[Rfam]
RNA: Small nucleolar RNA SNORD79
RNA sequence: UUCUGUUUAUGAUGAUUGUUUUAUAAAACAAUGGGAAUCUCUCUGAAUUUAGACUGAAAGACAUCUGUGUACUGAAACAGUG
Numbered sequence: 001u002u003c004u005g006u007u008u009a010u011g012a013u014g015a016u017u018g019u020u021u022u023a024u025a026a027a028a029c030a031a032u033g034g035g036a037a038u039c040u041c042u043c044u045g046a047a048u049u050u051a052g053a054c055u056g057a058a059a060g061a062c063a064u065c066u067g068u069g070u071a072c073u074g075a076a077a078c079a080g081u082g
Stems, first nucleotide, its partner, number of pairs: 001082001003080005